RNA: c-di-AMP riboswitch aptamer (ydaO/yuaA leader)
Organism: Paenibacillus selenitireducens
RNA sequence: CAUUUUGUAUCGCUGAGUCUCCAAAUUGGAGAGCGGGGGAACCGAUAUGGACCUCAUGAAGGUUCAUAAUUGAUUUCUUAAUGGGGUGAAUAGGAUGCUUCUCGCCAUGAGCGAGAGUGAAUCCUUAGGGCGACUCUCACGUCCGAAUCCGACAGCUAACCUCGUAAGCGUGCAGGGAGAGGUA
Dot-bracket structure: ..........((((...(((.........)))((((((....((.....................................))(((.....((((..........................))))..((((.........))))...))).........)))))).))))..............